Shown here is a 91-nucleotide RNA from Nomascus leucogenys, a member of the family "Small nucleolar RNA SNORD105".
RNA sequence: CCCCUGUCUCUCAUGAUGAACACAUAUGCCUCUGAGCUGCUGUGAUUUCUGGCUUCAAAGUAAACGCUCUGAAGAAGAUAUGGGGCAAAGG
Dot-bracket structure: .((.(..(((........................................................................)))..).))
The match comes from Rfam's covariance-model search (92 bits). Rfam 15.1 lists 146 matches to the family in 134 species. Rfam describes the family as follows. U105 belongs to the C/D family of snoRNAs. It is encoded in an intron of the Suppressor of SWI4 1 homolog (Ssf-1) (Peter Pan homolog) gene. and is predicted to guide 2'O-ribose methylation of residue U799 of the small 18S rRNA subunit. NCBI's taxonomy places the organism under Eukaryota, Eumetazoa, Craniata, Dipnotetrapodomorpha, Nomascus. For this family Rfam cites "Identification of 13 novel human modification guide RNAs" (Vitali et al., Nucleic Acids Res, 2003). Its Rfam clan is "SNORD105 clan".